[Rfam]
RNA sequence: CCGUGCUAGACGGGGAGGUAGCGGUGCCCUGUAACCCGCAAUCCGCUACAGCGGGGUUGAGCGCCUAUUCGCGGUAUUAUGAUGUGAGGUUUGGGUUUUAAAGUUGGUGUUGAGAGUCGGGUCCUCCGCAAUGGAAGCUUGUGAAUCCGGUCAGGUCCGGAAGGAAGCAGCCGUAAGCAAGAUGUUCCAUGUGCCGGAGGGGAGCCUAACUUGAGCUGACGAUAAAAAUUCCACUCGGAUCAUACUAUCAAGGUAGGUGCACGG
Numbered sequence: 001c002c003g004u005g006c007u008a009g010a011c012g013g014g015g016a017g018g019u020a021g022c023g024g025u026g027c028c029c030u031g032u033a034a035c036c037c038g039c040a041a042u043c044c045g046c047u048a049c050a051g052c053g054g055g056g057u058u059g060a061g062c063g064c065c066u067a068u069u070c071g072c073g074g075u076a077u078u079a080u081g082a083u084g085u086g087a088g089g090u091u092u093g094g095g096u097u098u099u100a101a102a103g104u105u106g107g108u109g110u111u112g113a114g115a116g117u118c119g120g121g122u123c124c125u126c127c128g129c130a131a132u133g134g135a136a137g138c139u140u141g142u143g144a145a146u147c148c149g150g151u152c153a154g155g156u157c158c159g160g161a162a163g164g165a166a167g168c169a170g171c172c173g174u175a176a177g178c179a180a181g182a183u184g185u186u187c188c189a190u191g192u193g194c195c196g197g198a199g200g201g202g203a204g205c206c207u208a209a210c211u212u213g214a215g216c217u218g219a220c221g222a223u224a225a226a227a228a229u230u231c232c233a234c235u236c237g238g239a240u241c242a243u244a245c246u247a248u249c250a251a252g253g254u255a256g257g258u259g260c261a262c263g264g
Base pairs, nucleotide, nucleotide: 001264002263003262004261005260006259009058010057011056012030013029014028015027017025019023035055036054037053038052039051064257065256066255067254068253069252073249074248075247076246079243080242081241082240083239085237086236087235088234092233093232096227097226098225099224100223103220104219106217107216108215114212115211116210117209119207120206121205122204123200124199125198126197127196128195129191130190132189133188134187135186136185138181139180140179141178142177148173149172150171151170156165157164158163
This 264-nucleotide RNA sequence from Paenibacillus solanacearum belongs to the Rfam family "Bacterial large signal recognition particle RNA". The family's RNA type in Rfam is non-coding RNA gene. It scores 209 bits against the family's covariance model.